[Rfam]
RNA: Small nucleolar RNA snoR77
Organism: Nicotiana sylvestris
RNA sequence: AGGCAGCCCCCUUUGUUCGAUUUGAUGGGAAGGGAGGUGUUAAUCUGCUCGUAAAUUAAAUUCGCUUUUAGUCUUCAGAUUUGCUGAGAUAUAUUAUAUCUUUGAAGCUGGUCUAGUAAAUCCUAAGCACAAU
Numbered sequence: 001a002g003g004c005a006g007c008c009c010c011c012u013u014u015g016u017u018c019g020a021u022u023u024g025a026u027g028g029g030a031a032g033g034g035a036g037g038u039g040u041u042a043a044u045c046u047g048c049u050c051g052u053a054a055a056u057u058a059a060a061u062u063c064g065c066u067u068u069u070a071g072u073c074u075u076c077a078g079a080u081u082u083g084c085u086g087a088g089a090u091a092u093a094u095u096a097u098a099u100c101u102u103u104g105a106a107g108c109u110g111g112u113c114u115a116g117u118a119a120a121u122c123c124u125a126a127g128c129a130c131a132a133u
Stems, first nucleotide, its partner, number of pairs: 002041004007037002009034006016027001065127003070121001072119001077114005083108003088100003